[Rfam]
RNA sequence: AGCUCCUUUAAUACAGUCCCGUGAGGCUGAGAAGGAAACGGAUAAAUGGAUGCAAGAUGCAUCUAUAAUUUGUGCAAAAUUCGUUUGCCUCUCGCCAAAAUCGGUGAGAGGCUUUUAUAU
Numbered sequence: 001a002g003c004u005c006c007u008u009u010a011a012u013a014c015a016g017u018c019c020c021g022u023g024a025g026g027c028u029g030a031g032a033a034g035g036a037a038a039c040g041g042a043u044a045a046a047u048g049g050a051u052g053c054a055a056g057a058u059g060c061a062u063c064u065a066u067a068a069u070u071u072g073u074g075c076a077a078a079a080u081u082c083g084u085u086u087g088c089c090u091c092u093c094g095c096c097a098a099a100a101u102c103g104g105u106g107a108g109a110g111g112c113u114u115u116u117a118u119a120u
Stems, first nucleotide, its partner, number of pairs: 004036006014029005046066008087112010
RNA: PyrR binding site